[Rfam]
Nucleotides: 077
Base pairs, nucleotide, nucleotide: 012037013036017032018031019030020029021028022027040071041070042069043068046066047065048062049061050060
Number, partner (000 for none) and nucleotide at each position: 001000a002000g003000u004000u005000g006000a007000a008000a009000a010000a011000g012037c013036c014000a015000c016000a017032g018031c019030c020029g021028u022027c023000g024000u025000g026000a027022g028021g029020c030019g031018g032017u033000g034000u035000c036013g037012g038000a039000a040071a041070g042069c043068c044000a045000a046066g047065g048062g049061u050060c051000u052000u053000u054000u055000u056000a057000u058000a059000a060050g061049a062048c063000a064000g065047c066046c067000g068043g069042g070041u071040u072000a073000c074000c075000u076000a077000c